[Rfam]
Overview
Rfam assigns this 100-nucleotide RNA sequence from Lachnospiraceae bacterium KH1T2 to the family "THF (Tetrahydrofolate) riboswitch aptamer". The source organism's lineage runs through Bacteria, Bacillota, Clostridia, Lachnospirales and Lachnospiraceae. Gene Ontology term of the family: tetrahydrofolate metabolic process. The literature on the family includes a 2010 paper in Chem Biol by Ames et al., "A eubacterial riboswitch class that senses the coenzyme tetrahydrofolate". A search with the family's covariance model found it, with a score of 90 bits. Rfam describes the family as follows. Tetrahydrofolate (THF) riboswitch was first reported for Ames et al. as an RNA motif in 5' untranslated (5'-UTR)regions of folate transport and biosynthesis genes in Firmicutes genomes.

RNA sequence: CGCAGAGUAGAUGGCAGAGCGUUAAGUGUUCGCUGAACAGGGAGUUGUCAGUGAAACGAAAAGAGUGUUUCUUGCGGUUCUGCUGUCGCAUCCCGCUGCU
Number, nucleotide and partner (000 for none) at each position: 001c000002g099003c098004a097005g096006a000007g000008u000009a000010g087011a086012u085013g084014g083015c082016a081017g080018a079019g078020c076021g075022u074023u000024a000025a000026g057027u056028g000029u055030u054031c053032g052033c051034u050035g049036a048037a000038c000039a000040g093041g092042g091043a000044g089045u000046u000047g000048u036049c035050a034051g033052u032053g031054a030055a029056a027057c026058g000059a000060a000061a073062a072063g071064a070065g000066u000067g000068u000069u000070u064071c063072u062073u061074g022075c021076g020077g000078u019079u018080c017081u016082g015083c014084u013085g012086u011087c010088g000089c044090a000091u042092c041093c040094c000095g000096c005097u004098g003099c002100u000